[Rfam]
RNA: nadA riboswitch
RNA sequence: GGCUGCAACAUCCCCGCGGGCGGGACUCUUUGGAAACAAAGCAGUUAGCGCGUUCGCUGCAGCC
Numbered sequence: 001g002g003c004u005g006c007a008a009c010a011u012c013c014c015c016g017c018g019g020g021c022g023g024g025a026c027u028c029u030u031u032g033g034a035a036a037c038a039a040a041g042c043a044g045u046u047a048g049c050g051c052g053u054u055c056g057c058u059g060c061a062g063c064c
Base pairs, nucleotide, nucleotide: 001064002063003062004061005060006059007058013050014048016057017056018055019054020053021052022051023049025045026044027043